[Rfam]
RNA sequence: GUGCAUAAGGCUUUUUGUGUGUGGUGGCUCACUCCCCGAAAGGGGGUGAUGCCAAUGACAGUAUUUGAAACGCUCAUUUUGAUGAUUUCCUUUGGAUCAUUUAUCGUGGCGCUUCUGUCAUUUGAUCAUAAAAAAUAACCACCCUUAGCCUGACAAGCAAAUAGCGGUGGUCAUUUUUCUCUACCCUAUUGUGAGUCGCCCCCUUAAAGGGCUAUGCACUGAACCGUUUGGUGUUUCCGCACCAGACG
Numbered sequence: 001g002u003g004c005a006u007a008a009g010g011c012u013u014u015u016u017g018u019g020u021g022u023g024g025u026g027g028c029u030c031a032c033u034c035c036c037c038g039a040a041a042g043g044g045g046g047u048g049a050u051g052c053c054a055a056u057g058a059c060a061g062u063a064u065u066u067g068a069a070a071c072g073c074u075c076a077u078u079u080u081g082a083u084g085a086u087u088u089c090c091u092u093u094g095g096a097u098c099a100u101u102u103a104u105c106g107u108g109g110c111g112c113u114u115c116u117g118u119c120a121u122u123u124g125a126u127c128a129u130a131a132a133a134a135a136u137a138a139c140c141a142c143c144c145u146u147a148g149c150c151u152g153a154c155a156a157g158c159a160a161a162u163a164g165c166g167g168u169g170g171u172c173a174u175u176u177u178u179c180u181c182u183a184c185c186c187u188a189u190u191g192u193g194a195g196u197c198g199c200c201c202c203c204u205u206a207a208a209g210g211g212c213u214a215u216g217c218a219c220u221g222a223a224c225c226g227u228u229u230g231g232u233g234u235u236u237c238c239g240c241a242c243c244a245g246a247c248g
Stems, first nucleotide, its partner, number of pairs: 001219005007213001009197005015148003019144001021142001023139001025137001029049008057119005063113001071084002095110001097108001159177003198212004225248010
The record is a 248-nucleotide RNA sequence from Lentibacillus kapialis, which matches "BsrG" in Rfam.
The family has 6 seed sequences and 614 matches in Rfam 15.1.
The family's consensus secondary structure was predicted with WAR.
NCBI's taxonomy places the organism under Bacteria, Bacillati, Bacillota, Bacillaceae, Lentibacillus.
The match comes from Rfam's covariance-model search (84 bits).
Rfam describes the family as follows. bsrE, bsrG and bsrH pair through intermolecular interactions with antisense sRNAs. They form type I toxin/antitoxin system that includes an mRNA encoding for a short, toxic peptide (bsrE, bsrG and bsrH) and an antitoxin that is comprised of an antisense RNA. bsrG encodes a 39-amino-acid toxin, and the 180 nucleotide antisense sRNA called SR4 acts as the antitoxin (they overlap by 123 nucleotides).
A reference for the family is Saito et al. (2008), "Novel small RNA-encoding genes in the intergenic regions of Bacillus subtilis", Gene.
Gene Ontology terms of the family: toxin activity and autolysis.
It is annotated as a small RNA.